This 105-nucleotide RNA sequence from Butyrivibrio sp. XB500-5 belongs to the Rfam family "THF (Tetrahydrofolate) riboswitch aptamer". About the family: Tetrahydrofolate (THF) riboswitch was first reported for Ames et al. as an RNA motif in 5' untranslated (5'-UTR)regions of folate transport and biosynthesis genes in Firmicutes genomes.

RNA sequence: UGCAGAGUAGACGUUAGUGCGUUAAGUGCUCGGUGAACAGGGAGUUGUCAUCGGGACGAAGGAUCUUUUUCAUGAUCCGCGGUACUAAUAUCGCAUCCCGCUGCU
Numbered sequence: 001u002g003c004a005g006a007g008u009a010g011a012c013g014u015u016a017g018u019g020c021g022u023u024a025a026g027u028g029c030u031c032g033g034u035g036a037a038c039a040g041g042g043a044g045u046u047g048u049c050a051u052c053g054g055g056a057c058g059a060a061g062g063a064u065c066u067u068u069u070u071c072a073u074g075a076u077c078c079g080c081g082g083u084a085c086u087a088a089u090a091u092c093g094c095a096u097c098c099c100g101c102u103g104c105u
Base pairs, nucleotide, nucleotide: 002104003103004102005101010092011091013089014088015087016086017085018084019083020081021080022079026057027056029055030054031053032052033051034050035049036048040098041097042096044094061078062077063076064075
The match comes from Rfam's covariance-model search (85 bits).